Saccharomyces telomerase: a 102-nucleotide part of an RNA from Saccharomyces kudriavzevii. The source organism's lineage runs through Eukaryota, Fungi, Saccharomycetes, Saccharomycetales and Saccharomyces. The base pairs follow the family's consensus structure, which is taken from published work. Rfam classes the family as a non-coding RNA gene.
[Rfam]
RNA sequence: AGAAAUGGUUUAUUCCCGUUUUUUCCAUUUUUCAGUAGAUUUUUCCCUUUUGCGAGAAUAAAUUGACACUUGAACAAAAAGCUUCGAAGAAAAAUCUAUUCA
Dot-bracket structure: (((((((([[[[[[[.........)))))))).((((((((((............]]]]]]]............................))))))))))..